[Rfam]
Shown here is a 70-nucleotide sequence from Enterococcus dispar, a member of the family "Enterococcus sRNA 64".
The family's consensus secondary structure was predicted with RNAfold.
The organism belongs to Enterococcus dispar, within Bacteria.
The match comes from Rfam's covariance-model search (45 bits).
RNA sequence: UAGGGAAGUCCUCUUUUCUGUGAAUUGGUUGUCGUAAACUUAAUUCUACAGAAGGGACUUCCUUUUUUGU
Dot-bracket structure: .((((((((((.(((((.....((((((((......)).))))))....)))))))))))))))......